RNA sequence: UGGAACAAUGUAGGUAAGGGAAGUCGGCAAAAUGGAUCCGUAACUUUGGGAUAUGGAUUGGCUCUAAGGGAUGGGAGGGCCGGGCCGGCGGCUUUCUGCUGGGCAGGGCCGGGCUGUGGAGUGUGCCUGCUGCGCGGCGCUUCGGCGCUGGGCGGCCGGGCACGUUCUGCGGCCAGUUUGCACUGUCUGCGCGCCGUCGGCGUGGCCGCGGGGAGCAAUCCGCGCGGCCUUAGCCAGCUCUCGGUUAACAUCCAGCUUAGAACUGGUACGGACAAGGGGAAUCUGACUGUCUAAUUAAAACAUAGCAUUGCGAUGGCCGGAGAACGGUGUUGACGCAAUGUGAUUUCUGCCCAGUGCUCUGAAUGUCACCGUGAAGAAAUUCAACCAAGCGCGGGUAAACGGCGGGAGUAACUAUGACUCUCUUAAGGUAGCCAAAUGCCUCGUCAUCUAAUUAGUGACGCGCAUGAAUGGAAAAACGAGAUUCCCACUGUCCCUACUUACUAUCUAGCGAAACCACAGCCAAGGGAACGGGCUUGGCAGA
Numbered sequence: 001u002g003g004a005a006c007a008a009u010g011u012a013g014g015u016a017a018g019g020g021a022a023g024u025c026g027g028c029a030a031a032a033u034g035g036a037u038c039c040g041u042a043a044c045u046u047u048g049g050g051a052u053a054u055g056g057a058u059u060g061g062c063u064c065u066a067a068g069g070g071a072u073g074g075g076a077g078g079g080c081c082g083g084g085c086c087g088g089c090g091g092c093u094u095u096c097u098g099c100u101g102g103g104c105a106g107g108g109c110c111g112g113g114c115u116g117u118g119g120a121g122u123g124u125g126c127c128u129g130c131u132g133c134g135c136g137g138c139g140c141u142u143c144g145g146c147g148c149u150g151g152g153c154g155g156c157c158g159g160g161c162a163c164g165u166u167c168u169g170c171g172g173c174c175a176g177u178u179u180g181c182a183c184u185g186u187c188u189g190c191g192c193g194c195c196g197u198c199g200g201c202g203u204g205g206c207c208g209c210g211g212g213g214a215g216c217a218a219u220c221c222g223c224g225c226g227g228c229c230u231u232a233g234c235c236a237g238c239u240c241u242c243g244g245u246u247a248a249c250a251u252c253c254a255g256c257u258u259a260g261a262a263c264u265g266g267u268a269c270g271g272a273c274a275a276g277g278g279g280a281a282u283c284u285g286a287c288u289g290u291c292u293a294a295u296u297a298a299a300a301c302a303u304a305g306c307a308u309u310g311c312g313a314u315g316g317c318c319g320g321a322g323a324a325c326g327g328u329g330u331u332g333a334c335g336c337a338a339u340g341u342g343a344u345u346u347c348u349g350c351c352c353a354g355u356g357c358u359c360u361g362a363a364u365g366u367c368a369c370c371g372u373g374a375a376g377a378a379a380u381u382c383a384a385c386c387a388a389g390c391g392c393g394g395g396u397a398a399a400c401g402g403c404g405g406g407a408g409u410a411a412c413u414a415u416g417a418c419u420c421u422c423u424u425a426a427g428g429u430a431g432c433c434a435a436a437u438g439c440c441u442c443g444u445c446a447u448c449u450a451a452u453u454a455g456u457g458a459c460g461c462g463c464a465u466g467a468a469u470g471g472a473a474a475a476a477c478g479a480g481a482u483u484c485c486c487a488c489u490g491u492c493c494c495u496a497c498u499u500a501c502u503a504u505c506u507a508g509c510g511a512a513a514c515c516a517c518a519g520c521c522a523a524g525g526g527a528a529c530g531g532g533c534u535u536g537g538c539a540g541a
Stems, first nucleotide, its partner, number of pairs: 001507004010501007018493003035059005044049001060264002063261006069253005075242006082235002084201003088197004098187001100185001101183001103181004110176001112174017265269001277486007284478002288302003305341008316328004344473004349403003354400002356396004361392001364391003372383004404422006423427001443459005520537005